RNA: mir-395 microRNA precursor family
Organism: Centaurea solstitialis
RNA sequence: GUUACUCCCAAAGUUCCUUCAAACACUUCAUUAGAAAUCUUUUGCGGUCGAUUCAGCCAAUAAUUCUACUGAAGAGUUUGGGGGAACUUUGGGGUUCGC
Number, nucleotide and partner (000 for none) at each position: 001g000002u000003u000004a000005c000006u094007c093008c092009c091010a000011a089012a088013g087014u086015u085016c084017c083018u082019u081020c080021a079022a078023a077024c076025a000026c074027u073028u072029c071030a070031u000032u068033a067034g066035a065036a000037a000038u000039c000040u000041u000042u000043u000044g000045c000046g000047g000048u000049c000050g000051a000052u000053u000054c000055a000056g000057c000058c000059a000060a000061u000062a000063a000064u000065u035066c034067u033068a032069c000070u030071g029072a028073a027074g026075a000076g024077u023078u022079u021080g020081g019082g018083g017084g016085a015086a014087c013088u012089u011090u000091g009092g008093g007094g006095u000096u000097c000098g000099c000